[Rfam]
RNA sequence: UACCAGCAUCAUGAGCCCAUUUUUGGGCACCAACCGAGCGGCACGCCACGGUGGUUCAGUAUGCGGGCAAUUUCGGCCAAAAAGGUGUAAAU
Numbered sequence: 001u002a003c004c005a006g007c008a009u010c011a012u013g014a015g016c017c018c019a020u021u022u023u024u025g026g027g028c029a030c031c032a033a034c035c036g037a038g039c040g041g042c043a044c045g046c047c048a049c050g051g052u053g054g055u056u057c058a059g060u061a062u063g064c065g066g067g068c069a070a071u072u073u074c075g076g077c078c079a080a081a082a083a084g085g086u087g088u089a090a091a092u
Base pairs, nucleotide, nucleotide: 006064007063008062009061015028016027017026018025019024029055030054031053034051035050036049038046039045043088044087066078067077068076

Source information: Rfam assigns this 92-nucleotide RNA sequence from Bacteroidales bacterium 6E to the family "SAM-I/IV (S-adenosyl methionine) riboswitch aptamer". Lineage of the source: Bacteria > Pseudomonadati > Bacteroidota > Bacteroidia > Bacteroidales. Clan: SAM clan. Rfam links the family to the GO terms S-adenosylmethionine metabolic process and regulation of gene expression. Pairs were carried over by alignment from the consensus structure, which is taken from published work. The match comes from Rfam's covariance-model search (48 bits). On this family, see Weinberg et al., RNA 2008: "The aptamer core of SAM-IV riboswitches mimics the ligand-binding site of SAM-I riboswitches".